[Rfam]
Record summary:
The record is a 78-nucleotide RNA from Beijerinckia sp. 28-YEA-48, which matches "Makes More Granules Regulator RNA (mmgR)" in Rfam. A search with the family's covariance model found it, with a score of 64 bits. The base pairs follow the family's consensus structure. By type it is a small RNA. Rfam describes the family as follows. SuhB later renamed mmgR (makes more granules regulator) was a putative non-coding RNA found multiple times in the Agrobacterium tumefaciens genome and related alpha-proteobacteria. Other non-coding RNAs uncovered in the same analysis include: speF, ybhL, metA, and serC.Several studies inSinorhizobium meliloti showed that suhB element is indeed a non-coding RNA:firstly it was detected on Northern blot and called Sm8RNA, secondly in an RNAseq study referred to as SmelC689.The mutant phenotype's (strain lacking the small RNA) cytoplasm contains higher content of polyhydroxybutyrate (PBH)storage granules than wild type strain. The sRNA is required to limit the PBH intracellular accumulation when the nitrogen-fixing Sinorhizobium meliloti is under condition of surplus carbon in relation to nitrogen. It has been renamed to mmgR. Further study confirmed that mmgR fine-tunes the regulation of PBH storage.Northern blot confirmed the expression of the sRNA in other rhizobia species. For this family Rfam cites "Evidence for a second class of S-adenosylmethionine riboswitches and other regulatory RNA motifs in alpha-proteobacteria" (Corbino et al., Genome Biol, 2005).
RNA sequence: CUGCAAUGCCCUCCUUGGGCGUUUCCUCCCUAGACUUGGGGCCGCCGUGGCGACACAGCGGCCUCCUUUCUUUUCUAG
Numbered sequence: 001c002u003g004c005a006a007u008g009c010c011c012u013c014c015u016u017g018g019g020c021g022u023u024u025c026c027u028c029c030c031u032a033g034a035c036u037u038g039g040g041g042c043c044g045c046c047g048u049g050g051c052g053a054c055a056c057a058g059c060g061g062c063c064u065c066c067u068u069u070c071u072u073u074u075c076u077a078g
Base pairs, nucleotide, nucleotide: 008020009019010018011017040063041062042061043060044059045058047056048055